[Rfam]
RNA sequence: UAGGCAGAUAGGAACCAUGUAAAAUCUUUAUGGUUUACAUGGGCCGAAACCCUGCCAAUAUCAAAGACGAAAAAUGGUCGCACGGUGCUUUAUCAUAAGUACUGGGCAUUACCCUCUUUUGCGACACUC
Numbered sequence: 001u002a003g004g005c006a007g008a009u010a011g012g013a014a015c016c017a018u019g020u021a022a023a024a025u026c027u028u029u030a031u032g033g034u035u036u037a038c039a040u041g042g043g044c045c046g047a048a049a050c051c052c053u054g055c056c057a058a059u060a061u062c063a064a065a066g067a068c069g070a071a072a073a074a075u076g077g078u079c080g081c082a083c084g085g086u087g088c089u090u091u092a093u094c095a096u097a098a099g100u101a102c103u104g105g106g107c108a109u110u111a112c113c114c115u116c117u118u119u120u121g122c123g124a125c126a127c128u129c
Base pairs, nucleotide, nucleotide: 003056004055005054006053007052011045012044015042016041017040018039019038020037021036022035023034024031025030068121069120070119071118072117076113077112078111080107081106083104084103085102086101087100089099090098091097

Rfam assigns this 129-nucleotide sequence from Panagrolaimus sp. ES5 to the family "Nematode snoRNA ceN39". Rfam classes the family as an H/ACA-box small nucleolar RNA. A search with the family's covariance model found it, with a score of 47 bits. The family has 4 seed sequences and 95 matches in Rfam 15.1. Its family is annotated with RNA processing and nucleolus in the Gene Ontology. The family's consensus secondary structure was predicted with RNAalifold.